[Rfam]
This 182-nucleotide RNA sequence from Sporolactobacillus laevolacticus belongs to the Rfam family "Lysine riboswitch aptamer". Its family is annotated with lysine biosynthetic process in the Gene Ontology. The organism belongs to Sporolactobacillus laevolacticus, within Bacteria. Rfam describes the family as follows. Riboswitches are metabolite binding domains within certain messenger RNAs that serve as precision sensors for their corresponding targets.
Nucleotides: 182
Base pairs, nucleotide, nucleotide: 007176008175009174010173011172016083017082018081019080020079021078023076024075033067034066035065036064037063038062087116088115089114090113091112092111093110094109095108096107097106098105117144118143121140122139123138124137125136126135127134147166148165149164150163151162152161
Number, partner (000 for none) and nucleotide at each position: 001000a002000g003000a004000g005000g006000g007176g008175g009174u010173a011172g012000a013000g014000g015000c016083g017082c018081g019080g020079c021078a022000u023076u024075u025000a026000u027000g028000a029000u030000g031000a032000a033067c034066g035065u036064a037063u038062c039000c040000g041000a042000g043000g044000c045000u046000a047000a048000g049000g050000g051000g052000a053000g054000c055000c056000g057000u058000a059000g060000a061000a062038g063037g064036u065035g066034c067033g068000c069000g070000u071000a072000a073000g074000g075024a076023a077000c078021u079020g080019c081018c082017g083016c084000c085000g086000a087116a088115g089114u090113g091112u092111g093110u094109c095108u096107g097106g098105c099000a100000c101000c102000c103000u104000u105098g106097u107096c108095a109094g110093g111092c112091a113090u114089g115088c116087u117144g118143g119000g120000a121140c122139c123138g124137u125136u126135u127134c128000c129000g130000a131000a132000a133000a134127g135126g136125g137124g138123c139122g140121g141000g142000a143118c144117u145000g146000u147166c148165a149164c150163a151162u152161g153000c154000g155000u156000c157000a158000a159000u160000g161152c162151a163150u164149g165148u166147g167000u168000u169000g170000u171000g172011c173010u174009a175008u176007c177000g178000g179000u180000g181000g182000a